[Rfam]
RNA sequence: GGAUGGAAUGAUGAUUGUUGUUUCCUAUUGGUUUGAUUGUCACAAUGAUGGCAUUUUGUAUUCUCUAUCUGGCCAUUC
Numbered sequence: 001g002g003a004u005g006g007a008a009u010g011a012u013g014a015u016u017g018u019u020g021u022u023u024c025c026u027a028u029u030g031g032u033u034u035g036a037u038u039g040u041c042a043c044a045a046u047g048a049u050g051g052c053a054u055u056u057u058g059u060a061u062u063c064u065c066u067a068u069c070u071g072g073c074c075a076u077u078c
Stems, first nucleotide, its partner, number of pairs: 002077004035055001038053004
RNA: Small nucleolar RNA Z102/R77
Organism: Cajanus cajan